Rfam assigns this 75-nucleotide RNA to the family "L4-Archaeoglobi ribosomal protein leades". By type it is a cis-regulatory leader. It is one of the family's seed sequences.
[Rfam]
RNA sequence: CUGAUUACCGCGCAUGGGUCGACGUUCGUGCAACGAGCCCGUUCCCCCUGAAUACGGGGGAUGCGUCAUUAUCAG
Dot-bracket structure: (((((....((((.((((....((((.....))))..)))).((((((.......)))))).))))....)))))